[Rfam]
RNA sequence: AGGCCCCUGGGCACUCGGUCUUCUCCACGUGGUCCUGACCGGCCCCCUGGGAGCCAGAGAAACGGGACUGGUUUGGGGGCUCCCUGUGCGAGGGGACACGGGAGACCACGGUUUCCAGUGCGACA
Numbered sequence: 001a002g003g004c005c006c007c008u009g010g011g012c013a014c015u016c017g018g019u020c021u022u023c024u025c026c027a028c029g030u031g032g033u034c035c036u037g038a039c040c041g042g043c044c045c046c047c048u049g050g051g052a053g054c055c056a057g058a059g060a061a062a063c064g065g066g067a068c069u070g071g072u073u074u075g076g077g078g079g080c081u082c083c084c085u086g087u088g089c090g091a092g093g094g095g096a097c098a099c100g101g102g103a104g105a106c107c108a109c110g111g112u113u114u115c116c117a118g119u120g121c122g123a124c125a
Stems, first nucleotide, its partner, number of pairs: 003054002006051003014042001017040004025032002065121001067119005073111003078107002081104001083102003086097002089094001
RNA: Small Cajal body specific RNA 23
Organism: Catagonus wagneri